A member of the RNA family "Insect-specific Flavivirus 3' UTR cis-acting replication element (CRE)" from Darwinula stevensoni, 90 nucleotides long. The match comes from Rfam's covariance-model search (43 bits). From the family's description: Flavi_ISFV_CRE is a Insect specific Flavivirus family. Flavivirus 3' UTR cis-acting replication element (CRE) plays a crucial role in the virus replication and is thought to be needed for the formation of a 'replication complex', it is composed of a small hairpin (sHP) and a larger structural element (3'SL). It has been shown that mutations in sHP are lethal for viruses. CRE is involved in the 5'-3' UTR interaction of flaviviruses. Taxonomically the source falls in Darwinula (Eukaryota, Eumetazoa, Mandibulata, Pancrustacea).
RNA sequence: CCUUCGAAAGGGAAAGAGCGGAGACCUGUAUAAACACGCAAUUCAUCCUCCACCGAGCGGGGGAUGGAUGACGUAUUUAUACAGGACUCC
Numbered sequence: 001c002c003u004u005c006g007a008a009a010g011g012g013a014a015a016g017a018g019c020g021g022a023g024a025c026c027u028g029u030a031u032a033a034a035c036a037c038g039c040a041a042u043u044c045a046u047c048c049u050c051c052a053c054c055g056a057g058c059g060g061g062g063g064a065u066g067g068a069u070g071a072c073g074u075a076u077u078u079a080u081a082c083a084g085g086a087c088u089c090c
Base pairs, nucleotide, nucleotide: 020090021089022088023087025085026084027083028082030080031079033077034076041069042068043067044066045065046064047063048062049061050060051059